[Rfam]
RNA sequence: GUUUGAAAUCAACUGCUAUAUUUGAAAAAGAAUAUAGAGGAAACUCCACGCUUGCACAUCCUGAGAUGGAUGUAGUGUUUGUGCUAGGGGAAAAAAUAACCCUAGGCAUCUUUUAUGAUGACGACAAGACUAACCUAAGUGAUUUUUCAUAUGGUGAUGUCUUUAAAGUGCCACAGAGACGAGUAACUAGAAAUAGUGAAAUGGAACGGGUAAACUCCACAAGCAAGAAACUCAAAUUUUGGUAGAGGAGCUAGUUUUUCGGGAAUUGAACUGAAAAAUUGGAUCGCUGAUUUAGCGAUAGAUAGAUAGUUGAUGCACAAUUGUGUACAGAACGUGGGUUAUGACA
Numbered sequence: 001g002u003u004u005g006a007a008a009u010c011a012a013c014u015g016c017u018a019u020a021u022u023u024g025a026a027a028a029a030g031a032a033u034a035u036a037g038a039g040g041a042a043a044c045u046c047c048a049c050g051c052u053u054g055c056a057c058a059u060c061c062u063g064a065g066a067u068g069g070a071u072g073u074a075g076u077g078u079u080u081g082u083g084c085u086a087g088g089g090g091a092a093a094a095a096a097u098a099a100c101c102c103u104a105g106g107c108a109u110c111u112u113u114u115a116u117g118a119u120g121a122c123g124a125c126a127a128g129a130c131u132a133a134c135c136u137a138a139g140u141g142a143u144u145u146u147u148c149a150u151a152u153g154g155u156g157a158u159g160u161c162u163u164u165a166a167a168g169u170g171c172c173a174c175a176g177a178g179a180c181g182a183g184u185a186a187c188u189a190g191a192a193a194u195a196g197u198g199a200a201a202u203g204g205a206a207c208g209g210g211u212a213a214a215c216u217c218c219a220c221a222a223g224c225a226a227g228a229a230a231c232u233c234a235a236a237u238u239u240u241g242g243u244a245g246a247g248g249a250g251c252u253a254g255u256u257u258u259u260c261g262g263g264a265a266u267u268g269a270a271c272u273g274a275a276a277a278a279u280u281g282g283a284u285c286g287c288u289g290a291u292u293u294a295g296c297g298a299u300a301g302a303u304a305g306a307u308a309g310u311u312g313a314u315g316c317a318c319a320a321u322u323g324u325g326u327a328c329a330g331a332a333c334g335u336g337g338g339u340u341a342u343g344a345c346a
Base pairs, nucleotide, nucleotide: 004346005345007342008314009313010312011311012310013309014308016037017036018035019034020033021032042340043339044338046337047336048335049334050333051227052226053225054224055223056073057072058071059070060069061068079222080221081220082219083218084105085104086103087102088101089100106122107120108119109118110117123217124216126163127162128161129160134154135153139150140149141148168215169214170211171210172209184198186197187196188195189194231247232246233245251282252281253280254279255278256277257276283299284298285297286296287295288294316325317324318323